[Rfam]
RNA sequence: UCCCUCAGUGUUGAAACAAUCUCUGUUGAACCAUGUUACAGGAAGUUCACUGGAGUUUGUUUCAACAUUGGAGGAA
Numbered sequence: 001u002c003c004c005u006c007a008g009u010g011u012u013g014a015a016a017c018a019a020u021c022u023c024u025g026u027u028g029a030a031c032c033a034u035g036u037u038a039c040a041g042g043a044a045g046u047u048c049a050c051u052g053g054a055g056u057u058u059g060u061u062u063c064a065a066c067a068u069u070g071g072a073g074g075a076a
Base pairs, nucleotide, nucleotide: 003074004073005072006070007069008068009067010066011065012064013063014062015061016060017059018058019057021055022054023053024052025051027049028048029047030046031045
The record is a 76-nucleotide RNA sequence from Bos taurus, which matches "mir-653 microRNA precursor family" in Rfam.
Its family is annotated with miRNA-mediated post-transcriptional gene silencing and RISC complex in the Gene Ontology.
Rfam 15.1 lists 116 matches to the family in 116 species.
Taxonomically the source falls in Bos (Eukaryota, Craniata, Vertebrata, Sarcopterygii).